[Rfam]
RNA sequence: UGGCUGUGAUGACUGAUUACAUUUCUCGAUCCUGAUACAUUUGACUAAGUUAAGGACCAAAUUGAUGACUUUUUAUGCGUGUCUGAGCCAA
Dot-bracket structure: ((((..................................................................................)))).
About this RNA:
small nucleolar RNA snoR126: a 91-nucleotide RNA from Phoenix dactylifera. On this family, see Chen and Wu, Nucleic Acids Res 2009: "Mining small RNA sequencing data: a new approach to identify small nucleolar RNAs in Arabidopsis".